The record is an 80-nucleotide RNA from Synaphobranchus kaupii, which matches "let-7 microRNA precursor family" in Rfam. The source organism's lineage runs through Eukaryota, Neopterygii, Anguilliformes, Synaphobranchinae and Synaphobranchus. The base pairs follow the family's consensus structure, which was predicted with RNAalifold. On this family, see Rougvie, Nat Rev Genet 2001: "Control of developmental timing in animals". From the family's description: This family represents the microRNAs (miRNA) let-7 and mir-98. let-7 was identified from a study of developmental timing in C. elegans, and was later shown to be part of a much larger class of non-coding RNAs termed miRNAs. A search with the family's covariance model found it, with a score of 69 bits.
[Rfam]
RNA sequence: GUGGGCUGAGGUAGUAGUUUGUAUAGUUUAGGAUCACACCAGAUCUGGGAGAUAACUAUACAGCCUACUGUCUUUCCCAC
Numbered sequence: 001g002u003g004g005g006c007u008g009a010g011g012u013a014g015u016a017g018u019u020u021g022u023a024u025a026g027u028u029u030a031g032g033a034u035c036a037c038a039c040c041a042g043a044u045c046u047g048g049g050a051g052a053u054a055a056c057u058a059u060a061c062a063g064c065c066u067a068c069u070g071u072c073u074u075u076c077c078c079a080c
Base pairs, nucleotide, nucleotide: 001080002079003078004077005076008074009073010072011071012070013069014068015067016066017065019063020062021061022060023059024058025057026056027055032045033044034043035042